RNA sequence: CGUGUACUUCGGGGUCGGUGUAAGUCCGAGCCGGCGGUGAUAGUCCGCGACCCGCAAUACCUAUUGCGGUUGAACUGGUGAAACUCCAGUACCGACAGUUAAAGCCUGGAUGGGAGAAGUAGUUG
Numbered sequence: 001c002g003u004g005u006a007c008u009u010c011g012g013g014g015u016c017g018g019u020g021u022a023a024g025u026c027c028g029a030g031c032c033g034g035c036g037g038u039g040a041u042a043g044u045c046c047g048c049g050a051c052c053c054g055c056a057a058u059a060c061c062u063a064u065u066g067c068g069g070u071u072g073a074a075c076u077g078g079u080g081a082a083a084c085u086c087c088a089g090u091a092c093c094g095a096c097a098g099u100u101a102a103a104g105c106c107u108g109g110a111u112g113g114g115a116g117a118a119g120u121a122g123u124u125g
Stems, first nucleotide, its partner, number of pairs: 005121006016028003030105002032094002034048004043092002052069002074090005096108003

The family of this 125-nucleotide RNA from Actinomyces sp. S6-Spd3 is "FMN riboswitch aptamer (RFN element)". It scores 94 bits against the family's covariance model. From the family's description: The RFN element is a highly conserved domain that is found frequently in the 5'-untranslated regions of prokaryotic mRNAs that encode for flavin mononucleotide (FMN) biosynthesis and transport proteins. The family's consensus secondary structure is taken from published work. Taxonomically the source falls in Actinomyces (Bacteria, Bacillati, Actinomycetota, Actinomycetales).